[Rfam]
RNA sequence: ACUCUCUCAGUUCUGCACAGCCACAGUUGGCUUCAUCUGUGUGACUUUGUAAUGGGGAGCGAGAGAAAAGAUCUCAGGACCUCAGACUGGCCUUAUGGUGGCCUCUCUUUCCUUGAGAGGCCUCUUCUU
Numbered sequence: 001a002c003u004c005u006c007u008c009a010g011u012u013c014u015g016c017a018c019a020g021c022c023a024c025a026g027u028u029g030g031c032u033u034c035a036u037c038u039g040u041g042u043g044a045c046u047u048u049g050u051a052a053u054g055g056g057g058a059g060c061g062a063g064a065g066a067a068a069a070g071a072u073c074u075c076a077g078g079a080c081c082u083c084a085g086a087c088u089g090g091c092c093u094u095a096u097g098g099u100g101g102c103c104u105c106u107c108u109u110u111c112c113u114u115g116a117g118a119g120g121c122c123u124c125u126u127c128u129u
Stems, first nucleotide, its partner, number of pairs: 002065005008059001011057005019046002022043004073119003076114003084108003089103004
RNA: Small nucleolar RNA SNORA64/SNORA10 family
Organism: Prolemur simus